RNA: Potassium channel RNA editing signal
Organism: Litomosoides sigmodontis
RNA sequence: AUUGGUUAUGGUGACAUGACCCCGCACACGUACCUGGGACGUAUCAUUGGUUCAGUUUGUGCACUUACCGGUGUUUUAACCAUCGCAUUACCCGUUCCUGUAAGAUAAUUGCUGAU
Numbered sequence: 001a002u003u004g005g006u007u008a009u010g011g012u013g014a015c016a017u018g019a020c021c022c023c024g025c026a027c028a029c030g031u032a033c034c035u036g037g038g039a040c041g042u043a044u045c046a047u048u049g050g051u052u053c054a055g056u057u058u059g060u061g062c063a064c065u066u067a068c069c070g071g072u073g074u075u076u077u078a079a080c081c082a083u084c085g086c087a088u089u090a091c092c093c094g095u096u097c098c099u100g101u102a103a104g105a106u107a108a109u110u111g112c113u114g115a116u
Stems, first nucleotide, its partner, number of pairs: 001116002004113002008109002011106001014101003018097002021094001037077003050062002